[Rfam]
RNA: TPP riboswitch aptamer (THI element)
Nucleotides: 096
Base pairs, nucleotide, nucleotide: 006084007083008082009081010080011046012045013044014043016040017033018032019031020030021029052077053076054075058071059070060069061068
Number, partner (000 for none) and nucleotide at each position: 001000g002000a003000g004000a005000u006084g007083c008082a009081a010080c011046a012045g013044g014043g015000g016040c017033g018032u019031c020030c021029g022000c023000u024000a025000c026000g027000c028000g029021c030020g031019g032018g033017c034000u035000g036000a037000g038000a039000a040016g041000c042000a043014c044013c045012c046011u047000u048000c049000g050000a051000a052077c053076c054075u055000g056000a057000c058071c059070c060069g061068g062000a063000u064000c065000a066000u067000a068061c069060c070059g071058g072000c073000g074000g075054a076053g077052g078000a079000a080010g081009u082008u083007g084006c085000g086000g087000a088000c089000a090000c091000g092000u093000g094000u095000c096000g